[Rfam]
The family of this 208-nucleotide part of an RNA from Fusarium vanettenii is "Ascomycota telomerase RNA". Clan: Telomerase clan. Rfam links the family to the GO terms telomere maintenance via telomerase, telomerase catalytic core complex and telomerase activity. The match comes from Rfam's covariance-model search (346 bits). The pairing is the family consensus, mapped onto this sequence.
RNA sequence: UCCCCCACAGUUCUCCGACUCACGUUUUCCGCAAGGAAUGUCUAUCGCAGGCCCCCUUCCCAUCUGGUUAGCCGCAAUAUGCCGCUCUCGAACCUGUAUCAGGAUCUCGUUAUGCCGCAGCUGGAUUAUUGUGGAUGCACCGCGACCUGUAGAGGUUGUACCAGGGCAGAAGGGUAACGCGUUUCGGAACUUAACCCUAAGAAGAUAU
Numbered sequence: 001u002c003c004c005c006c007a008c009a010g011u012u013c014u015c016c017g018a019c020u021c022a023c024g025u026u027u028u029c030c031g032c033a034a035g036g037a038a039u040g041u042c043u044a045u046c047g048c049a050g051g052c053c054c055c056c057u058u059c060c061c062a063u064c065u066g067g068u069u070a071g072c073c074g075c076a077a078u079a080u081g082c083c084g085c086u087c088u089c090g091a092a093c094c095u096g097u098a099u100c101a102g103g104a105u106c107u108c109g110u111u112a113u114g115c116c117g118c119a120g121c122u123g124g125a126u127u128a129u130u131g132u133g134g135a136u137g138c139a140c141c142g143c144g145a146c147c148u149g150u151a152g153a154g155g156u157u158g159u160a161c162c163a164g165g166g167c168a169g170a171a172g173g174g175u176a177a178c179g180c181g182u183u184u185c186g187g188a189a190c191u192u193a194a195c196c197c198u199a200a201g202a203a204g205a206u207a208u
Base pairs, nucleotide, nucleotide: 009191010190011189015187016186017185018184